[Rfam]
Nucleotides: 085
Stems, first nucleotide, its partner, number of pairs: 001085008010075012023062003
Number, partner (000 for none) and nucleotide at each position: 001085g002084u003083g004082a005081c006080a007079g008078a009000a010075g011074a012073g013072a014071g015070u016069g017068a018067g019066c020065a021064c022000a023062c024061a025060u026000g027000a028000u029000u030000u031000u032000u033000c034000u035000a036000g037000c038000a039000u040000g041000g042000a043000g044000g045000u046000u047000c048000a049000u050000g051000u052000u053000g054000g055000a056000a057000g058000c059000u060025a061024u062023g063000c064021g065020u066019g067018c068017u069016c070015a071014c072013u073012c074011u075010c076000u077000a078008u079007c080006u081005g082004u083003c084002a085001c
The family of this 85-nucleotide RNA sequence from Protea cynaroides is "mir-156 microRNA precursor family". It scores 85 bits against the family's covariance model. Its family is annotated with RISC complex and miRNA-mediated post-transcriptional gene silencing in the Gene Ontology. Rfam describes the family as follows. This family represents the plant microRNA (miRNA) precursor mir-156.